[Rfam]
RNA sequence: GUGCAUCGCUAGGGGUGCAAUCUCGCUGAGAGGAAACCAUCCAACCCUAUGAACCUGAUCCGGGUAAUACCGGCGAAGGGAAGCGGUCAAGACACUGA
Numbered sequence: 001g002u003g004c005a006u007c008g009c010u011a012g013g014g015g016u017g018c019a020a021u022c023u024c025g026c027u028g029a030g031a032g033g034a035a036a037c038c039a040u041c042c043a044a045c046c047c048u049a050u051g052a053a054c055c056u057g058a059u060c061c062g063g064g065u066a067a068u069a070c071c072g073g074c075g076a077a078g079g080g081a082a083g084c085g086g087u088c089a090a091g092a093c094a095c096u097g098a
Stems, first nucleotide, its partner, number of pairs: 006086005011048004017026002033041002054079003060073004
The family of this 98-nucleotide RNA sequence from Desulfobulbus oligotrophicus is "TPP riboswitch aptamer (THI element)".